[Rfam]
RNA sequence: UUAAUUGCUUUCUAGGGUUCCGCAACAAAGAUUGUCUGUGAAUAUAUGGAGAAAUUUUGUUGGACUGGUCCGAGAGAAAGCACACAGCUAAGCUGUGACACGGAGGGAUAAAAGCCCGGGAGAU
Numbered sequence: 001u002u003a004a005u006u007g008c009u010u011u012c013u014a015g016g017g018u019u020c021c022g023c024a025a026c027a028a029a030g031a032u033u034g035u036c037u038g039u040g041a042a043u044a045u046a047u048g049g050a051g052a053a054a055u056u057u058u059g060u061u062g063g064a065c066u067g068g069u070c071c072g073a074g075a076g077a078a079a080g081c082a083c084a085c086a087g088c089u090a091a092g093c094u095g096u097g098a099c100a101c102g103g104a105g106g107g108a109u110a111a112a113a114g115c116c117c118g119g120g121a122g123a124u
Stems, first nucleotide, its partner, number of pairs: 007081006015071002020068002022065001023062008083097006099119001101122001105117003
Dot-bracket structure: ......((((((..((...(((((((((((........................))))))))..).)).))....)))))).((((((...)))))).(.[...(((.......))).)..]..
RNA: Guanidine-I riboswitch aptamer
Organism: Calidifontibacillus erzurumensis